[Rfam]
A member of the RNA family "mir-130 microRNA precursor family" from Saimiri boliviensis, 85 nucleotides long. A search with the family's covariance model found it, with a score of 41 bits. Its family is annotated with RISC complex and miRNA-mediated post-transcriptional gene silencing in the Gene Ontology.
Nucleotides: 085
Stems, first nucleotide, its partner, number of pairs: 001085001003083001005080006012073007021064011
Number, partner (000 for none) and nucleotide at each position: 001085u002000c003083c004000a005080u006079a007078u008077c009076u010075u011000u012073g013072c014071a015070a016069u017068u018067g019000c020000a021064a022063a023062u024061u025060g026059u027058g028057c029056u030055g031054c032000a033000g034000g035000g036000u037000g038000u039000g040000u041000g042000c043000a044000c045000a046000u047000g048000u049000a050000u051000a052000a053000a054031g055030c056029a057028g058027c059026a060025c061024a062023a063022u064021u065000u066000g067018c068017a069016a070015u071014u072013g073012c074000a075010a076009a077008g078007a079006u080005a081000u082000g083003g084000a085001a